[Rfam]
RNA sequence: AGUAUUUGAGGUGGUAAAUUUCGUUGCGACCACACGCCGCUGGUAUGACAGGGGAAACCCGAGAGAUGCAGGAGUAAGCCACGCCUGCCGAAUAAC
Dot-bracket structure: ..((((((..(((((.......[[.[[.))))).((((...)))..................)....(((((.....]].]].)))))))))))..